Shown here is a 55-nucleotide RNA from Solanum commersonii, a member of the family "MIR8008 microRNA precursor family".
Its family is annotated with miRNA-mediated post-transcriptional gene silencing and RISC complex in the Gene Ontology.
Taxonomically the source falls in Solanum (Eukaryota, Embryophyta, Pentapetalae, Solanales).
The family's consensus secondary structure was predicted with RNAalifold.
Nucleotides: 055
Stems, first nucleotide, its partner, number of pairs: 002052016019035003
Number, partner (000 for none) and nucleotide at each position: 001000u002052a003051u004050u005049c006048c007047a008046g009045a010044a011043a012042a013041g014040c015039g016038a017037c018000c019035g020034a021033c022000a023000g024000u025000g026000u027000c028000c029000u030000u031000u032000a033021g034020u035019u036000c037017g038016u039015c040014g041013c042012u043011u044010u045009u046008c047007u048006g049005g050004g051003a052002u053000u054000u055000u